[Rfam]
About this RNA: This 52-nucleotide RNA from Azoarcus olearius belongs to the Rfam family "Guanidine-II riboswitch aptamer (mini-ykkC)". From the family's description: Simpler in structure and has fewer highly conserved nucleotide positions than the ykkC-yxkD leader. Despite this each of its two stem-loop structures directly bind free guanidine. Therefore, mini-ykkC RNA motif represents a distinct class of guanidine-sensing RNAs. Its crystal structure was also determined. Gene Ontology term of the family: regulation of gene expression.
RNA sequence: ACGCGGGGACGACCCCGCACAUCACGUCGGUUUUUUGUCCGGGACGACCCGA
Dot-bracket structure: ..((((((....)))))).....................((((....)))).
Numbered sequence: 001a002c003g004c005g006g007g008g009a010c011g012a013c014c015c016c017g018c019a020c021a022u023c024a025c026g027u028c029g030g031u032u033u034u035u036u037g038u039c040c041g042g043g044a045c046g047a048c049c050c051g052a
Stems, first nucleotide, its partner, number of pairs: 003018006040051004